[Rfam]
The record is a 361-nucleotide RNA from Methylobacillus flagellatus, which matches "transfer-messenger RNA" in Rfam. A reference for the family is Williams and Bartel (1996), "Phylogenetic analysis of tmRNA secondary structure", RNA. Rfam's curators put it in the seed alignment. Bacterial tmRNA, also known as 10Sa RNA or SsrA, is named for its dual tRNA and mRNA-like properties. Its role is to liberate the mRNA from a stalled ribosome. To accomplish this part of the tmRNA is used as a reading frame that ends in a translation stop signal. The family's RNA type in Rfam is non-coding RNA gene. Its Rfam clan is "tRNA clan".
RNA sequence: GGGGCCGACCAGGUUUCGACGUGGGUUGCAAAGCAGCGCAGGGCAUACCGAGGCCUAGUCACCUCGUAAAUAAACUAGAACAAGUAUAGUCGCAAACGACGAAACUUACGCUCUAGCCGCUUAAUCCCGGCUGGACGCUGCACCGGAAGGCCUCUCGGCCGGGCGGGUAACCGCAGCAGCGUCAUUUAGAGAGGAUCGUGUUGUAUUGGGUUACUUAAUACAACAUUAAAUCCAAGGUAACUCGCCUGCUGUUCGCUUGCUCGUUGGUGGGCAUCAGGUUAAAUCAAACAACACAGCUAAGUAUGUAGAACUGUCUGUGGAGGGCUUGCGGACGGGGGUUCGAUUCCCCCCGGCUCCACCA
Numbered sequence: 001g002g003g004g005c006c007g008a009c010c011a012g013g014u015u016u017c018g019a020c021g022u023g024g025g026u027u028g029c030a031a032a033g034c035a036g037c038g039c040a041g042g043g044c045a046u047a048c049c050g051a052g053g054c055c056u057a058g059u060c061a062c063c064u065c066g067u068a069a070a071u072a073a074a075c076u077a078g079a080a081c082a083a084g085u086a087u088a089g090u091c092g093c094a095a096a097c098g099a100c101g102a103a104a105c106u107u108a109c110g111c112u113c114u115a116g117c118c119g120c121u122u123a124a125u126c127c128c129g130g131c132u133g134g135a136c137g138c139u140g141c142a143c144c145g146g147a148a149g150g151c152c153u154c155u156c157g158g159c160c161g162g163g164c165g166g167g168u169a170a171c172c173g174c175a176g177c178a179g180c181g182u183c184a185u186u187u188a189g190a191g192a193g194g195a196u197c198g199u200g201u202u203g204u205a206u207u208g209g210g211u212u213a214c215u216u217a218a219u220a221c222a223a224c225a226u227u228a229a230a231u232c233c234a235a236g237g238u239a240a241c242u243c244g245c246c247u248g249c250u251g252u253u254c255g256c257u258u259g260c261u262c263g264u265u266g267g268u269g270g271g272c273a274u275c276a277g278g279u280u281a282a283a284u285c286a287a288a289c290a291a292c293a294c295a296g297c298u299a300a301g302u303a304u305g306u307a308g309a310a311c312u313g314u315c316u317g318u319g320g321a322g323g324g325c326u327u328g329c330g331g332a333c334g335g336g337g338g339u340u341c342g343a344u345u346c347c348c349c350c351c352g353g354c355u356c357c358a359c360c361a
Base pairs, nucleotide, nucleotide: 001357002356003355004354005353006352007351020330021329022328023327024326025325026324027323033318034317035316036315039313040312041311044305045304046303047302048301049066050065051064052063053062055078056077057076058075059074112135113134114133115132116131117130118129119128136181137180138179139178140177141176144161145160146159151194152193153192154191155190156189198226199225200224201223202222203221204220205219206218209242210241211240212239213238214237244279245278246277247276248275253271255268256267257266259297260296261295263292264291265290334350335349336348337347338346